A member of the RNA family "glmS glucosamine-6-phosphate activated ribozyme aptamer" from Romboutsia ilealis, 182 nucleotides long.
Gene Ontology terms of the family: catalytic activity and regulation of gene expression.
Rfam describes the family as follows. This entry contains a glucosamine-6-phosphate activated ribozyme that is found in the mRNA for GlmS. GlmS is an enzyme that uses fructose-6-phosphate and glutamine to generate glucosamine-6-phosphate. The ribozyme catalyses self cleavage of the glmS mRNA that is thought to regulate GlmS activity.
RNA sequence: GCUCAUCAAUAAGCGCCAGAACUUAGUUACUAGCGACAAUGAAUUAAUAUUAUAAAAACUAAGUUGACGAGGUCGGAGUUUAUCGAAUUGUCGGCGGAUGCUCUGCGGUGAAUUCACCAUCGUAAGAACUUUCUUAAAAUAUAGGAGUAAUUCUAUACACAAAGGGAAGCUUAAGUGAAUAA
Number, nucleotide and partner (000 for none) at each position: 001g000002c000003u000004c000005a000006u000007c000008a000009a000010u000011a000012a000013g000014c000015g000016c000017c000018a000019g000020a065021a064022c063023u062024u061025a060026g059027u058028u056029a000030c000031u000032a000033g000034c000035g000036a000037c000038a000039a000040u000041g000042a000043a000044u000045u000046a000047a000048u000049a000050u000051u000052a000053u000054a000055a000056a028057a000058a027059c026060u025061a024062a023063g022064u021065u020066g000067a000068c000069g000070a000071g000072g000073u000074c105075g104076g103077a102078g101079u000080u000081u000082a000083u094084c093085g092086a091087a000088u000089u000090g000091u086092c085093g084094g083095c000096g000097g000098a000099u000100g000101c078102u077103c076104u075105g074106c122107g121108g120109u119110g118111a000112a000113u000114u000115c000116a000117c000118c110119a109120u108121c107122g106123u000124a000125a000126g000127a172128a171129c169130u168131u167132u166133c000134u000135u000136a000137a000138a000139a000140u157141a156142u155143a154144g153145g152146a151147g000148u000149a000150a000151u146152u145153c144154u143155a142156u141157a140158c000159a000160c000161a000162a000163a000164g000165g000166g132167a131168a130169g129170c000171u128172u127173a000174a000175g000176u000177g000178a000179a000180u000181a000182a000